[Rfam]
The family of this 220-nucleotide RNA sequence is "S. aureus tsr24 small RNA". It scores 54 bits against the family's covariance model. For this family Rfam cites "Genome-wide Annotation, Identification, and Global Transcriptomic Analysis of Regulatory or Small RNA Gene Expression in Staphylococcus aureus" (Carroll et al., MBio, 2016).
RNA sequence: GGGGAAAAAAGGGGGGGCCAAAACCCCCCUUUUUUUAAAAAAAAGGGGGGGGGAAAGGGUUUUAUUUUUUUUUUAAAAAAAUUUUAAAAAAAAAUUUUUAAAAAUUUUUUUUUUUGGGGGCCUUUUCCCCCGGGGGAAAAAUUUCCCCCCGGGGGAAAAAACCCCGGGAAAAAGGGGGCCCCCAAAACCCCCAAAAAUUUUUUUUUGGGGGGAAAAAAAA
Dot-bracket structure: ...((((((((...............((((((((......))))))))...............................(.((((...(((....))).(((....)))..(((((((((((......(((.((((.....((..(((....)))..))..)))))))........))))))))))).....)))).)))))))))..............